[Rfam]
RNA sequence: GCCCUUUCACAAAAUCCCGCAAACGCCUAUAUUCACUUCGCCGUCGCUUGCGGCGGCUAUGGCGAUAAAUGAACACCGUAAUAAACCAUUCGGACCCGGGGGCGGUACCCGGCGCCUCCACCAAAGCCCGUCGGCGCGGCGGGCUUCGGCGGGGGCGAAAUAGGAUCGACGAGGGCGUAAAGGGUGAUUUUUCGCUCGGCAUGAUACCGCCGUUAUCGGGUCAAACCUUAUAGUUGCCAACGACAACUAUGCUCCGGUGGCCGUCGCUGCGUAAUGCAGCGCCCAUACCGGGAUCAAAGUCCUAGGGGUUUGCACUUCUAGGCGGGGUCCGGAGGCGCCUGGCAACAGAAGCCUCCACU
Numbered sequence: 001g002c003c004c005u006u007u008c009a010c011a012a013a014a015u016c017c018c019g020c021a022a023a024c025g026c027c028u029a030u031a032u033u034c035a036c037u038u039c040g041c042c043g044u045c046g047c048u049u050g051c052g053g054c055g056g057c058u059a060u061g062g063c064g065a066u067a068a069a070u071g072a073a074c075a076c077c078g079u080a081a082u083a084a085a086c087c088a089u090u091c092g093g094a095c096c097c098g099g100g101g102g103c104g105g106u107a108c109c110c111g112g113c114g115c116c117u118c119c120a121c122c123a124a125a126g127c128c129c130g131u132c133g134g135c136g137c138g139g140c141g142g143g144c145u146u147c148g149g150c151g152g153g154g155g156c157g158a159a160a161u162a163g164g165a166u167c168g169a170c171g172a173g174g175g176c177g178u179a180a181a182g183g184g185u186g187a188u189u190u191u192u193c194g195c196u197c198g199g200c201a202u203g204a205u206a207c208c209g210c211c212g213u214u215a216u217c218g219g220g221u222c223a224a225a226c227c228u229u230a231u232a233g234u235u236g237c238c239a240a241c242g243a244c245a246a247c248u249a250u251g252c253u254c255c256g257g258u259g260g261c262c263g264u265c266g267c268u269g270c271g272u273a274a275u276g277c278a279g280c281g282c283c284c285a286u287a288c289c290g291g292g293a294u295c296a297a298a299g300u301c302c303u304a305g306g307g308g309u310u311u312g313c314a315c316u317u318c319u320a321g322g323c324g325g326g327g328u329c330c331g332g333a334g335g336c337g338c339c340u341g342g343c344a345a346c347a348g349a350a351g352c353c354u355c356c357a358c359u
Base pairs, nucleotide, nucleotide: 040057041056042055043054044053045052046051061196062195063194064193065192071189072188074186075185076184077183086175087174090172091171092170096112097111098110099109100108113157114156115155116154117153118152119151197212198211199210200209202223203222204221207219208218325340326339327338328337331356332355333354334353335352336351